[Rfam]
RNA sequence: GCGCGUGGACGACCUCGCGGCUUCUCCAUUUUCCCGGCCGGGACGACCCGC
Numbered sequence: 001g002c003g004c005g006u007g008g009a010c011g012a013c014c015u016c017g018c019g020g021c022u023u024c025u026c027c028a029u030u031u032u033c034c035c036g037g038c039c040g041g042g043a044c045g046a047c048c049c050g051c
Stems, first nucleotide, its partner, number of pairs: 002019004007014002039050004
RNA: Guanidine-II riboswitch aptamer (mini-ykkC)
Organism: Devosia sp. Root436